Rfam assigns this 84-nucleotide RNA from Weizmannia acidilactici to the family "c-di-GMP-I riboswitch aptamer". A reference for the family is Weinberg et al. (2007), "Identification of 22 candidate structured RNAs in bacteria using the CMfinder comparative genomics pipeline", Nucleic Acids Res.
[Rfam]
RNA sequence: AAAAUGAAAGAGCAAAUUACUGAAAGGUAAAGGUGCAAAGCCACAGGUCUAAGGCAUGAUUGCUAUGACGGCAGGGUUGCCACA
Numbered sequence: 001a002a003a004a005u006g007a008a009a010g011a012g013c014a015a016a017u018u019a020c021u022g023a024a025a026g027g028u029a030a031a032g033g034u035g036c037a038a039a040g041c042c043a044c045a046g047g048u049c050u051a052a053g054g055c056a057u058g059a060u061u062g063c064u065a066u067g068a069c070g071g072c073a074g075g076g077u078u079g080c081c082a083c084a
Stems, first nucleotide, its partner, number of pairs: 012036002017030005039078004044074001046072001047069003054063003
Rfam's curators write: GEMM was predicted in a large-scale screen for bacterial structured RNA regulatory elements.